[Rfam]
RNA: SAM riboswitch aptamer (S box leader)
Organism: Gottfriedia endophytica
RNA sequence: CUCUUAUUUUGAGUAGGCGGAGGGAUUUGGCCCGAUGAUGCCCAGCAACCGACCGUAAUACCAUUGUGAAAUGGGGCGUUUAGUAAAACGCCUGAGCGAAAAGCUCAGUAAGGCACGGUGCUAAUUCCAACAGAAAGAUUUUCUUUCUGGCAGAUAAGAG
Numbered sequence: 001c002u003c004u005u006a007u008u009u010u011g012a013g014u015a016g017g018c019g020g021a022g023g024g025a026u027u028u029g030g031c032c033c034g035a036u037g038a039u040g041c042c043c044a045g046c047a048a049c050c051g052a053c054c055g056u057a058a059u060a061c062c063a064u065u066g067u068g069a070a071a072u073g074g075g076g077c078g079u080u081u082a083g084u085a086a087a088a089c090g091c092c093u094g095a096g097c098g099a100a101a102a103g104c105u106c107a108g109u110a111a112g113g114c115a116c117g118g119u120g121c122u123a124a125u126u127c128c129a130a131c132a133g134a135a136a137g138a139u140u141u142u143c144u145u146u147c148u149g150g151c152a153g154a155u156a157a158g159a160g
Base pairs, nucleotide, nucleotide: 001160002159003158004157005156006155007154008153013043016042017041018040022033023032024031027130028129029128030127044122045121046120047119049118050117051114053112126152131149132148133147134146135145136144
Dot-bracket structure: ((((((((....(..(((...(((..[[[[)))......))))((((.(((.(..........................................................).)..))))))...(]]]]((((((.......))))))..)))))))))